[Rfam]
RNA sequence: ACCUUAUCUUUUAAAAGUUUCAAGUUAGUCCCUUAUCCUUUUUUUAGGUUUCAAGUUGGUCUCUUCCGUCAAUUUUUUUACUGUUACCGUUAAAUUUGGACACGUGUCAUCUGUACAAGUGAGCCACGUGUCCAAAAUAGUUUGCCACGUGUCGAAAUUUAACAAAAAUAGUUAAAAAAUUGACGGAAGGGACCAACUUGAAACCUAAAAUAAAGAUAAGGGACCAAGUUGUAAUUUUUAAAAGAUAAGGGA
Numbered sequence: 001a002c003c004u005u006a007u008c009u010u011u012u013a014a015a016a017g018u019u020u021c022a023a024g025u026u027a028g029u030c031c032c033u034u035a036u037c038c039u040u041u042u043u044u045u046a047g048g049u050u051u052c053a054a055g056u057u058g059g060u061c062u063c064u065u066c067c068g069u070c071a072a073u074u075u076u077u078u079u080a081c082u083g084u085u086a087c088c089g090u091u092a093a094a095u096u097u098g099g100a101c102a103c104g105u106g107u108c109a110u111c112u113g114u115a116c117a118a119g120u121g122a123g124c125c126a127c128g129u130g131u132c133c134a135a136a137a138u139a140g141u142u143u144g145c146c147a148c149g150u151g152u153c154g155a156a157a158u159u160u161a162a163c164a165a166a167a168a169u170a171g172u173u174a175a176a177a178a179a180u181u182g183a184c185g186g187a188a189g190g191g192a193c194c195a196a197c198u199u200g201a202a203a204c205c206u207a208a209a210a211u212a213a214a215g216a217u218a219a220g221g222g223a224c225c226a227a228g229u230u231g232u233a234a235u236u237u238u239u240a241a242a243a244g245a246u247a248a249g250g251g252a
Stems, first nucleotide, its partner, number of pairs: 002250007023229001025227001028224002031221007039213002042210002045207003
RNA: MIR2655 microRNA precursor family